[Rfam]
RNA sequence: ACACUUUUAGUGCUUCUUAAAAAAAAUGUCUGAACGUAGGAACUCCCUAGUGAUUUCAGUCCAUUACUGAAAAAAGGU
Numbered sequence: 001a002c003a004c005u006u007u008u009a010g011u012g013c014u015u016c017u018u019a020a021a022a023a024a025a026a027u028g029u030c031u032g033a034a035c036g037u038a039g040g041a042a043c044u045c046c047c048u049a050g051u052g053a054u055u056u057c058a059g060u061c062c063a064u065u066a067c068u069g070a071a072a073a074a075a076g077g078u
Stems, first nucleotide, its partner, number of pairs: 002077001005074004
Rfam assigns this 78-nucleotide RNA sequence from Urocolius indicus to the family "Small nucleolar RNA SNORD72". About the family: snoRNA HBII-240 belongs to the CD family of snoRNAs. It is the human orthologue of the mouse MBII-240 and is predicted to guide 2'O-ribose methylation of the large 28S rRNA at residue U4590. Gene Ontology terms of the family: nucleolus and RNA processing. The pairing is the family consensus, mapped onto this sequence.